[Rfam]
RNA sequence: AGACACCAGGGUCAAAAAGCCAUGUUUUUCUCGUGCUUGCACGAGAAAAAACAUGGCUUUGGGACCCACCAAAUCAUGAGGAUGCAGCGAUUUCCAAAGGAAAUCAGCGAAUCCUCAUGAUUUGCAGAAUUGCGAGAGCUGCAAAGCAGCGAAGCAAUUCGUGAGGUGUCG
Number, nucleotide and partner (000 for none) at each position: 001a000002g170003a169004c168005a167006c166007c165008a000009g000010g066011g065012u064013c063014a000015a000016a060017a059018a058019g057020c056021c055022a054023u053024g052025u051026u050027u049028u048029u047030c000031u044032c043033g042034u041035g040036c000037u000038u000039g000040c035041a034042c033043g032044a031045g000046a000047a029048a028049a027050a026051a025052c024053a023054u022055g021056g020057c019058u018059u017060u016061g000062g000063g013064a012065c011066c010067c000068a000069c000070c124071a123072a122073a121074u120075c119076a118077u117078g000079a000080g114081g113082a112083u111084g000085c000086a000087g108088c107089g105090a104091u103092u102093u101094c000095c000096a000097a000098a000099g000100g000101a093102a092103a091104u090105c089106a000107g088108c087109g000110a000111a083112u082113c081114c080115u000116c000117a077118u076119g075120a074121u073122u072123u071124g070125c000126a000127g160128a159129a158130u157131u156132g155133c154134g000135a000136g000137a000138g150139c149140u148141g147142c000143a000144a000145a000146g000147c141148a140149g139150c138151g000152a000153a000154g133155c132156a131157a130158u129159u128160c127161g000162u000163g000164a000165g007166g006167u005168g004169u003170c002171g000

The family of this 171-nucleotide RNA sequence from Clostridiales bacterium KLE1615 is "Clostridiales-1 RNA". A search with the family's covariance model found it, with a score of 121 bits. Pairs were carried over by alignment from the consensus structure, which is taken from published work.